[Rfam]
Nucleotides: 131
Stems, first nucleotide, its partner, number of pairs: 001131001006126004016035005022030001037116007045072007058092005094107005
Number, partner (000 for none) and nucleotide at each position: 001131c002000c003000a004000a005000u006126g007125a008124a009123u010000c011000u012000u013000c014000a015000a016035g017034c018033u019032u020031c021000c022030c023000a024000g025000u026000u027000u028000g029000u030022g031020g032019a033018a034017g035016c036000c037116g038115a039114c040113g041112a042111g043110c044000c045072a046071a047070u048069c049068u050067u051066c052000u053000g054000c055000a056000a057000u058092g059091c060090u061089a062088u063000u064000a065000a066051g067050a068049g069048g070047a071046u072045u073000a074000c075000c076000c077000a078000u079000u080000a081000g082000a083000g084000g085000u086000u087000c088062a089061u090060a091059g092058c093000g094107a095106u096105a097104g098103g099000u100000c101000g102000c103098u104097c105096u106095a107094u108000c109000a110043g111042c112041u113040u114039g115038u116037c117000a118000a119000a120000u121000g122000c123009a124008u125007u126006c127000u128000g129000a130000a131001g